[Rfam]
RNA sequence: UUCUGACCCUCGGUCCUGACUCCCAGCCGCUCCCGCCCUGACGCACUUCCCCGGCGCCAGGUCAGAGCGGAUGGGGAUCAGGAUCGAGGGGCAGCCGCAC
Numbered sequence: 001u002u003c004u005g006a007c008c009c010u011c012g013g014u015c016c017u018g019a020c021u022c023c024c025a026g027c028c029g030c031u032c033c034c035g036c037c038c039u040g041a042c043g044c045a046c047u048u049c050c051c052c053g054g055c056g057c058c059a060g061g062u063c064a065g066a067g068c069g070g071a072u073g074g075g076g077a078u079c080a081g082g083a084u085c086g087a088g089g090g091g092c093a094g095c096c097g098c099a100c
Stems, first nucleotide, its partner, number of pairs: 010087007018079002021076005027070005033065001035063001037061004042056003
Record summary: Rfam assigns this 100-nucleotide RNA from Microbacterium sp. BK668 to the family "mraW RNA". Pairs were carried over by alignment from the consensus structure, which is taken from published work. The family's RNA type in Rfam is cis-regulatory element.